Overview:
A member of the RNA family "Histidine operon leader" from Affinibrenneria salicis, 123 nucleotides long. Rfam describes the family as follows. At least 6 amino acid operons are known to be regulated by attenuation. In each a leader sequence of 150-200 bp is found upstream of the first gene in the operon. The literature on the family includes a 1982 paper in Annu Rev Genet by Kolter and Yanofsky, "Attenuation in amino acid biosynthetic operons". The base pairs follow the family's consensus structure, which is taken from published work. Rfam links the family to the GO term histidine biosynthetic process. Taxonomically the source falls in Affinibrenneria (Bacteria, Pseudomonadati, Gammaproteobacteria, Enterobacterales).
RNA sequence: CCAUCAUCACCAUCAUCCUGACUAGUCUUUCAGGCAGUUGGUGCUGGAAGACAUUCAGAUCUUCCAGUGGCGCAGAAUGGCAAGAAAGCCCCCGGAAGAUCAUUCUUCCGGGGGUUUUUUUUU
Numbered sequence: 001c002c003a004u005c006a007u008c009a010c011c012a013u014c015a016u017c018c019u020g021a022c023u024a025g026u027c028u029u030u031c032a033g034g035c036a037g038u039u040g041g042u043g044c045u046g047g048a049a050g051a052c053a054u055u056c057a058g059a060u061c062u063u064c065c066a067g068u069g070g071c072g073c074a075g076a077a078u079g080g081c082a083a084g085a086a087a088g089c090c091c092c093c094g095g096a097a098g099a100u101c102a103u104u105c106u107u108c109c110g111g112g113g114g115u116u117u118u119u120u121u122u123u
Base pairs, nucleotide, nucleotide: 008043009042010041011040012039014037017034018033019032020031021030044067045066046065047064048063049062050061051060083120084119085118086117087116088115089114090113091112092111093110094109095108096107097106098105
Dot-bracket structure: .......(((((.(..(((((........)))))..).)))))((((((((........))))))))...............((((((((((((((((......))))))))))))))))...